[Rfam]
RNA sequence: GUUUAAUGAUGAUAACAUGCGUGUCAACUGAACUUAGUGUUCUCUGCAGCGUUCUGUCUCCAGUCGGCGUUUUGCUUACUGGUGCACAUGGCGCUGCAGUACUCUAAGCGCAUGAUCAGAGAUGUAUAAGGCUGAAAAC
Numbered sequence: 001g002u003u004u005a006a007u008g009a010u011g012a013u014a015a016c017a018u019g020c021g022u023g024u025c026a027a028c029u030g031a032a033c034u035u036a037g038u039g040u041u042c043u044c045u046g047c048a049g050c051g052u053u054c055u056g057u058c059u060c061c062a063g064u065c066g067g068c069g070u071u072u073u074g075c076u077u078a079c080u081g082g083u084g085c086a087c088a089u090g091g092c093g094c095u096g097c098a099g100u101a102c103u104c105u106a107a108g109c110g111c112a113u114g115a116u117c118a119g120a121g122a123u124g125u126a127u128a129a130g131g132c133u134g135a136a137a138a139c
Stems, first nucleotide, its partner, number of pairs: 001139004044099007

The record is a 139-nucleotide RNA from Clupea harengus, which matches "Small nucleolar RNA SNORD10" in Rfam. For this family Rfam cites "RNomics: an experimental approach that identifies 201 candidates for novel, small, non-messenger RNAs in mouse" (Huttenhofer et al., EMBO J, 2001). Rfam classes the family as a C/D-box small nucleolar RNA. A search with the family's covariance model found it, with a score of 66 bits. Its family is annotated with RNA processing and nucleolus in the Gene Ontology.